RNA sequence: AUUAAUCUUUCAAUGGCUUAAGAAAAACAUGGCAAUUUGGAGUAAUGAGUGAUUAGUUUCACUACAUGCUCCAAAUUUAGACAGUUUGCUUAUGCUUUAGCCAUCUGCAUGCUCUGCAAAUCAACAUAAAGCUUUGCCAUGCACGGAAGAAGGUGAAGAUGAUGUUUCGAAAAGUUCAACCAGAGUAUGAAGGAUUUGGCUAAUGUGUAACAAACCGGCAAGUCACAGAACGGCAAUGAACUCGAAUUUUCGAGUUUU
Numbered sequence: 001a002u003u004a005a006u007c008u009u010u011c012a013a014u015g016g017c018u019u020a021a022g023a024a025a026a027a028c029a030u031g032g033c034a035a036u037u038u039g040g041a042g043u044a045a046u047g048a049g050u051g052a053u054u055a056g057u058u059u060c061a062c063u064a065c066a067u068g069c070u071c072c073a074a075a076u077u078u079a080g081a082c083a084g085u086u087u088g089c090u091u092a093u094g095c096u097u098u099a100g101c102c103a104u105c106u107g108c109a110u111g112c113u114c115u116g117c118a119a120a121u122c123a124a125c126a127u128a129a130a131g132c133u134u135u136g137c138c139a140u141g142c143a144c145g146g147a148a149g150a151a152g153g154u155g156a157a158g159a160u161g162a163u164g165u166u167u168c169g170a171a172a173a174g175u176u177c178a179a180c181c182a183g184a185g186u187a188u189g190a191a192g193g194a195u196u197u198g199g200c201u202a203a204u205g206u207g208u209a210a211c212a213a214a215c216c217g218g219c220a221a222g223u224c225a226c227a228g229a230a231c232g233g234c235a236a237u238g239a240a241c242u243c244g245a246a247u248u249u250u251c252g253a254g255u256u257u258u
Stems, first nucleotide, its partner, number of pairs: 042072001044070001084215005102205003239256005
A member of the RNA family "Early nodulin 40" from Apium graveolens, 258 nucleotides long. The family's RNA type in Rfam is non-coding RNA gene. NCBI's taxonomy places the organism under Eukaryota, Pentapetalae, asterids, Apiaceae, Apium. Pairs were carried over by alignment from the consensus structure, which is taken from published work. Its family is annotated with nodulation in the Gene Ontology. Rfam 15.1 lists 341 matches to the family in 193 species. A search with the family's covariance model found it, with a score of 94 bits.